[Rfam]
RNA sequence: UUUGGCCUUCACCUGGCAUACAAUGUAGAAUACUGUGUUUGUUAAGCAACAGCUACAUUGUCUGCUGGGUUUCAGGCUUUCUGG
Numbered sequence: 001u002u003u004g005g006c007c008u009u010c011a012c013c014u015g016g017c018a019u020a021c022a023a024u025g026u027a028g029a030a031u032a033c034u035g036u037g038u039u040u041g042u043u044a045a046g047c048a049a050c051a052g053c054u055a056c057a058u059u060g061u062c063u064g065c066u067g068g069g070u071u072u073c074a075g076g077c078u079u080u081c082u083g084g
Base pairs, nucleotide, nucleotide: 013068014067015066016065017064018063020061021060022059023058024057025056026055027054028053033052034051035050036049